[Rfam]
Small nucleolar RNA SNORA11: a 132-nucleotide RNA from Eleutherodactylus coqui.
RNA sequence: CCGGUGCGCUCAGAGCAGCCUUUGGUGAAACCCUUCCUUGGCUGUUUAUACCGCACCGCAAAUCAAUCCACUGCAGCCACCACUAUGAGACGUGAAGCCUGUGUCCUCCUUGGUGUAGGCUGCCGUACAUCU
Numbered sequence: 001c002c003g004g005u006g007c008g009c010u011c012a013g014a015g016c017a018g019c020c021u022u023u024g025g026u027g028a029a030a031c032c033c034u035u036c037c038u039u040g041g042c043u044g045u046u047u048a049u050a051c052c053g054c055a056c057c058g059c060a061a062a063u064c065a066a067u068c069c070a071c072u073g074c075a076g077c078c079a080c081c082a083c084u085a086u087g088a089g090a091c092g093u094g095a096a097g098c099c100u101g102u103g104u105c106c107u108c109c110u111u112g113g114u115g116u117a118g119g120c121u122g123c124c125g126u127a128c129a130u131c132u
Base pairs, nucleotide, nucleotide: 002058003057004056005055006054007053008052013047014046015045016044017043018042019041020040071125073123074122078118079116080115083113084112087105088104090102091101092100094098

Rfam classes the family as an H/ACA-box small nucleolar RNA. It scores 44 bits against the family's covariance model.